The record is a 75-nucleotide sequence from Myotis brandtii, which matches "mir-9223 microRNA precursor family" in Rfam. Lineage of the source: Eukaryota > Chordata > Amniota > Laurasiatheria > Myotis. The family has 9 seed sequences and 14,641 matches in Rfam 15.1. It scores 74 bits against the family's covariance model. Its family is annotated with miRNA-mediated post-transcriptional gene silencing and RISC complex in the Gene Ontology.
[Rfam]
RNA sequence: GGCAGUUCUUGGGUGAUGCACCCUGGAAUUGGGCUCCCUCCUCUCUGAUUUCAGGUGCGUCACAUGAGAACCGCA
Numbered sequence: 001g002g003c004a005g006u007u008c009u010u011g012g013g014u015g016a017u018g019c020a021c022c023c024u025g026g027a028a029u030u031g032g033g034c035u036c037c038c039u040c041c042u043c044u045c046u047g048a049u050u051u052c053a054g055g056u057g058c059g060u061c062a063c064a065u066g067a068g069a070a071c072c073g074c075a
Base pairs, nucleotide, nucleotide: 002074003073005071006070007069008068009067010066011065013063014062015061016060017059019057020056021055022054025052026051027050028049029048030047031046032045033044